Bacterial small signal recognition particle RNA: a 99-nucleotide sequence from Campylobacter jejuni. The source organism's lineage runs through Bacteria, Pseudomonadati, Epsilonproteobacteria, Campylobacter and Campylobacter jejuni subsp. jejuni. Pairs were carried over by alignment from the consensus structure, which is taken from published work. Rfam classes the family as a non-coding RNA gene.
RNA sequence: UUCUUAGACCUGUGCAAUGCUAUUUUUAAGCACCGCUUCAGGGUGGGAACACAGCAGAGCACUUGAUUUUAGUGUGUGCCGCAGUUAUCUGGGGAAGGG
Numbered sequence: 001u002u003c004u005u006a007g008a009c010c011u012g013u014g015c016a017a018u019g020c021u022a023u024u025u026u027u028a029a030g031c032a033c034c035g036c037u038u039c040a041g042g043g044u045g046g047g048a049a050c051a052c053a054g055c056a057g058a059g060c061a062c063u064u065g066a067u068u069u070u071a072g073u074g075u076g077u078g079c080c081g082c083a084g085u086u087a088u089c090u091g092g093g094g095a096a097g098g099g
Stems, first nucleotide, its partner, number of pairs: 004092005010084005015076001017075006026066005035060004043052003